RNA sequence: AUUUAAACACAUCCUAUGUUAUGGUUCAAC
Numbered sequence: 001a002u003u004u005a006a007a008c009a010c011a012u013c014c015u016a017u018g019u020u021a022u023g024g025u026u027c028a029a030c
Stems, first nucleotide, its partner, number of pairs: 009019004
Rfam assigns this 30-nucleotide RNA from Clostridium aciditolerans to the family "CRISPR RNA direct repeat element". Pairs were carried over by alignment from the consensus structure, which was predicted with WAR.